[Rfam]
Nucleotides: 115
Stems, first nucleotide, its partner, number of pairs: 001047004011040004017034004025078001062110003083098004
Number, partner (000 for none) and nucleotide at each position: 001047g002046g003045u004044c005000g006000a007000u008000g009000a010000a011040g012039c013038u014037a015000a016000c017034a018033a019032a020031u021000u022000g023000g024000c025078u026000g027000u028000g029000a030000c031020g032019u033018u034017u035000a036000c037014u038013a039012g040011u041000g042000g043000a044004g045003a046002u047001c048000u049000u050000c051000a052000a053000u054000a055000g056000g057000g058000u059000u060000a061000g062110a063109g064108c065000u066000a067000u068000a069000c070000c071000u072000c073000g074000u075000a076000c077000a078025g079000a080000u081000u082000a083098g084097g085096c086095a087000a088000g089000u090000a091000a092000g093000a094000u095086u096085g097084c098083u099000g100000a101000a102000a103000g104000a105000a106000a107000a108064g109063c110062u111000c112000a113000u114000a115000u
Shown here is a 115-nucleotide RNA sequence from Lactobacillus phage Lbab1, a member of the family "drum RNA". Firmicutes, Bacteroidetes (1 example), Proteobacteria (2 examples), Spirochaetes (2 examples). The family's consensus secondary structure is taken from published work. The family's RNA type in Rfam is small RNA. NCBI's taxonomy places the organism under Viruses, Uroviricota, Caudoviricetes, Herelleviridae, Mooreparkvirus.